[Rfam]
RNA sequence: ACUGCUCGCACGCGGCCGCAGGACGGAAUGUGGCCCGCGAAUCGUGACGAUUCGCGGGCUGAACCACGCA
Numbered sequence: 001a002c003u004g005c006u007c008g009c010a011c012g013c014g015g016c017c018g019c020a021g022g023a024c025g026g027a028a029u030g031u032g033g034c035c036c037g038c039g040a041a042u043c044g045u046g047a048c049g050a051u052u053c054g055c056g057g058g059c060u061g062a063a064c065c066a067c068g069c070a
Stems, first nucleotide, its partner, number of pairs: 002021004025065002032060013